[Rfam]
RNA sequence: GUAUUCUAUGGAGUACAACCCCUGAAGAACAACUUAAGUACUAAUUUAAUUUUACAAGCCCUUAUGUAAUUCGUGCAUUACUGCUAGCCAGCAUGAAUAUUAUAUA
Numbered sequence: 001g002u003a004u005u006c007u008a009u010g011g012a013g014u015a016c017a018a019c020c021c022c023u024g025a026a027g028a029a030c031a032a033c034u035u036a037a038g039u040a041c042u043a044a045u046u047u048a049a050u051u052u053u054a055c056a057a058g059c060c061c062u063u064a065u066g067u068a069a070u071u072c073g074u075g076c077a078u079u080a081c082u083g084c085u086a087g088c089c090a091g092c093a094u095g096a097a098u099a100u101u102a103u104a105u106a
Stems, first nucleotide, its partner, number of pairs: 005097001007095004011089001016083002023037001025035003038059002042054003064078005
The record is a 106-nucleotide sequence from Piliocolobus tephrosceles, which matches "Mitochondrial DNA control region secondary structure A" in Rfam. On this family, see Pereira et al., Mol Biol Evol 2008: "Evidence for variable selective pressures at a large secondary structure of the human mitochondrial DNA control region". The family has 53 seed sequences and 795 matches in Rfam 15.1. NCBI's taxonomy places the organism under Eukaryota, Deuterostomia, Haplorrhini, Catarrhini, Piliocolobus. The match comes from Rfam's covariance-model search (72 bits).